The record is an 80-nucleotide RNA sequence from Cricetulus griseus, which matches "mir-218 microRNA precursor family" in Rfam. Rfam's curators put it in the seed alignment. Gene Ontology terms of the family: miRNA-mediated post-transcriptional gene silencing and RISC complex. The literature on the family includes a 2005 paper in Genes Dev by Chen et al., "The developmental miRNA profiles of zebrafish as determined by small RNA cloning". The family's consensus secondary structure was predicted with RNAalifold. The organism belongs to Cricetulus, within Eukaryota.
RNA sequence: GGCUUUCCUUUGUGCUUGAUCUAACCAUGUGGUGGAACGAUGGAAACGGAACAUGGUUCUGUCAAGCACCGCGGAAAGUA
Numbered sequence: 001g002g003c004u005u006u007c008c009u010u011u012g013u014g015c016u017u018g019a020u021c022u023a024a025c026c027a028u029g030u031g032g033u034g035g036a037a038c039g040a041u042g043g044a045a046a047c048g049g050a051a052c053a054u055g056g057u058u059c060u061g062u063c064a065a066g067c068a069c070c071g072c073g074g075a076a077a078g079u080a
Base pairs, nucleotide, nucleotide: 002079003078004077005076006075007074008073012069013068014067015066016065017064018063023058024057025056026055027054028053029052030051